Description
The record is a 112-nucleotide RNA from Nocardiopsis composta, which matches "TPP riboswitch aptamer (THI element)" in Rfam. Its family is annotated with thiamine pyrophosphate binding in the Gene Ontology. A search with the family's covariance model found it, with a score of 64 bits.
[Rfam]
RNA sequence: GAACGUUCCCGCGGGAGCCGGGUGGGACCCGGCUGAGAGGGGGGCUGGCAGCCCCCGACCGCACGAACCUGAUCCGGGUCAUGCCGGCGAAGGGAGUGGCAUCUCCGCCAUG
Numbered sequence: 001g002a003a004c005g006u007u008c009c010c011g012c013g014g015g016a017g018c019c020g021g022g023u024g025g026g027a028c029c030c031g032g033c034u035g036a037g038a039g040g041g042g043g044g045c046u047g048g049c050a051g052c053c054c055c056c057g058a059c060c061g062c063a064c065g066a067a068c069c070u071g072a073u074c075c076g077g078g079u080c081a082u083g084c085c086g087g088c089g090a091a092g093g094g095a096g097u098g099g100c101a102u103c104u105c106c107g108c109c110a111u112g
Stems, first nucleotide, its partner, number of pairs: 007099002010096001011062004017033005040056007068093003074087004